Shown here is an 87-nucleotide RNA from Denticeps clupeoides, a member of the family "mir-145 microRNA precursor family".
The family has 26 seed sequences and 645 matches in Rfam 15.1.
The base pairs follow the family's consensus structure, which was predicted with RNAalifold.
A search with the family's covariance model found it, with a score of 88 bits.
[Rfam]
RNA sequence: UCCCUAUCCCCGGGGUCCAGUUUUCCCAGGAAUCCCUUGGAAAAUCACAACGGGGAUUCCUGGAAAUACUGUUCUUGGGGGCGGGGC
Numbered sequence: 001u002c003c004c005u006a007u008c009c010c011c012g013g014g015g016u017c018c019a020g021u022u023u024u025c026c027c028a029g030g031a032a033u034c035c036c037u038u039g040g041a042a043a044a045u046c047a048c049a050a051c052g053g054g055g056a057u058u059c060c061u062g063g064a065a066a067u068a069c070u071g072u073u074c075u076u077g078g079g080g081g082c083g084g085g086g087c
Stems, first nucleotide, its partner, number of pairs: 018071004023066002026063012

The literature on the family includes a 2005 paper in Genes Dev by Chen et al., "The developmental miRNA profiles of zebrafish as determined by small RNA cloning".